Shown here is a 122-nucleotide RNA sequence from Fukomys damarensis, a member of the family "Small nucleolar RNA SNORA27".

RNA sequence: ACACCCCCUGUCAUUUUGCCAGUUGGACUUACAUCUUUAUUAGCCCUUCAAGUGGGAUGAAGGAAAUAUCUUUUUAAAACUCAAGCAAAUUGUUUGUCUUGUAAACUUUCAGGGAAAUAAAU
Numbered sequence: 001a002c003a004c005c006c007c008c009u010g011u012c013a014u015u016u017u018g019c020c021a022g023u024u025g026g027a028c029u030u031a032c033a034u035c036u037u038u039a040u041u042a043g044c045c046c047u048u049c050a051a052g053u054g055g056g057a058u059g060a061a062g063g064a065a066a067u068a069u070c071u072u073u074u075u076a077a078a079a080c081u082c083a084a085g086c087a088a089a090u091u092g093u094u095u096g097u098c099u100u101g102u103a104a105a106c107u108u109u110c111a112g113g114g115a116a117a118u119a120a121a122u
Base pairs, nucleotide, nucleotide: 032059033058034057035056036055040051041050043048069115070114072113073112074111082101083099085097086096087095088094089093

Lineage of the source: Eukaryota > Chordata > Amniota > Eutheria > Fukomys.
Its family is annotated with nucleolus and RNA processing in the Gene Ontology.
By type it is an H/ACA-box small nucleolar RNA.
Pairs were carried over by alignment from the consensus structure.
ACA27 is a member of the H/ACA class of snoRNA that guide the sites of modification of uridines to pseudouridines.